[Rfam]
Small nucleolar RNA SNORA75: a 135-nucleotide sequence from Phyllostomus discolor.
By type it is an H/ACA-box small nucleolar RNA.
Gene Ontology terms of the family: nucleolus and RNA processing.
For this family Rfam cites "The family of box ACA small nucleolar RNAs is defined by an evolutionarily conserved secondary structure and ubiquitous sequence elements essential for RNA accumulation" (Ganot et al., Genes Dev, 1997).
U23 belongs to the H/ACA class of snoRNAs. snoRNAs bind a number of proteins (including dyskerin, Gar1p and Nop10p in the case of the H/ACA class) to form snoRNP complexes. This class are thought to guide the sites of modification of uridines to pseudouridines by forming direct base pairing interactions with substrate RNAs.

Nucleotides: 135
Base pairs, nucleotide, nucleotide: 003059004058005057006056007055008054014051015050016046017045018044022038023037024036025035026034070128071127072126073125074124075123092108093107094106095105098103
Number, partner (000 for none) and nucleotide at each position: 001000g002000u003059c004058u005057u006056c007055u008054c009000a010000u011000u012000g013000a014051g015050c016046u017045c018044c019000u020000u021000g022038c023037u024036g025035u026034c027000g028000g029000u030000c031000u032000g033000u034026g035025g036024c037023a038022g039000u040000u041000u042000a043000u044018g045017g046016a047000u048000u049000c050015g051014c052000a053000c054008g055007a056006g057005a058004a059003g060000g061000a062000g063000a064000g065000a066000c067000a068000g069000u070128u071127c072126a073125c074124a075123g076000a077000g078000c079000u080000a081000g082000c083000g084000u085000u086000g087000c088000u089000u090000u091000g092108c093107c094106u095105c096000c097000a098103g099000u100000c101000u102000u103098c104000a105095g106094a107093g108092g109000u110000a111000c112000a113000g114000c115000c116000u117000g118000c119000u120000g121000u122000u123075c124074u125073g126072u127071g128070a129000g130000a131000c132000a133000u134000u135000c